Shown here is a 98-nucleotide sequence from Alkalihalobacillus trypoxylicola, a member of the family "SAM riboswitch aptamer (S box leader)".
A search with the family's covariance model found it, with a score of 86 bits.
The source organism's lineage runs through Bacteria, Bacillati, Caryophanales, Bacillaceae and Alkalihalobacillus.
[Rfam]
RNA sequence: CUCUUAUCGAGAGAGGUGGAGGGACUGGCCCGAUGAAACCCGGCAACCGUUAAAAGUGGUGCUAAAUCCUGCAAAGCAUAAGCUUUGAAAGAUGAGAU
Numbered sequence: 001c002u003c004u005u006a007u008c009g010a011g012a013g014a015g016g017u018g019g020a021g022g023g024a025c026u027g028g029c030c031c032g033a034u035g036a037a038a039c040c041c042g043g044c045a046a047c048c049g050u051u052a053a054a055a056g057u058g059g060u061g062c063u064a065a066a067u068c069c070u071g072c073a074a075a076g077c078a079u080a081a082g083c084u085u086u087g088a089a090a091g092a093u094g095a096g097a098u
Base pairs, nucleotide, nucleotide: 002097003096004095005094006093007092008091013041015040016039017038021031022030023029025071027069028068042063043062044061045060047059048058050054067090072087073086074085075084076083077082